[Rfam]
The family of this 132-nucleotide RNA from Panthera leo is "Small nucleolar RNA SNORA72".
A reference for the family is Ganot et al. (1997), "The family of box ACA small nucleolar RNAs is defined by an evolutionarily conserved secondary structure and ubiquitous sequence elements essential for RNA accumulation", Genes Dev.
Rfam's curators write: U72 is a member of the H/ACA class of snoRNAs.
The source organism's lineage runs through Eukaryota, Teleostomi, Dipnotetrapodomorpha, Tetrapoda and Panthera.
The family's RNA type in Rfam is H/ACA-box small nucleolar RNA.
It scores 141 bits against the family's covariance model.
Gene Ontology terms of the family: RNA processing and nucleolus.
RNA sequence: CUGCGAAUAUUCUUACUGUUCUGAUUUUGUAAUGAUCAGGGCAGGCUAAACGUUCAGUAUAUUAAGACCAGGUAUGUGUCCCCAGACCUAGUUCUUUCCCUAGGCCUGGUUUUAUAAAUGCUGGUGACAAAC
Number, nucleotide and partner (000 for none) at each position: 001c000002u000003g000004c000005g055006a000007a000008u000009a000010u000011u000012c000013u000014u000015a000016c044017u043018g042019u041020u040021c039022u038023g037024a036025u035026u034027u000028u000029g000030u000031a000032a000033u000034g026035a025036u024037c023038a022039g021040g020041g019042c018043a017044g016045g000046c000047u000048a000049a000050a000051c000052g000053u000054u000055c005056a000057g000058u000059a000060u000061a000062u000063u000064a000065a000066g000067a125068c124069c123070a122071g000072g121073u120074a000075u000076g000077u000078g000079u000080c000081c000082c109083c108084a107085g106086a000087c104088c103089u102090a101091g100092u000093u000094c000095u000096u000097u000098c000099c000100c091101u090102a089103g088104g087105c000106c085107u084108g083109g082110u000111u000112u000113u000114a000115u000116a000117a000118a000119u000120g073121c072122u070123g069124g068125u067126g000127a000128c000129a000130a000131a000132c000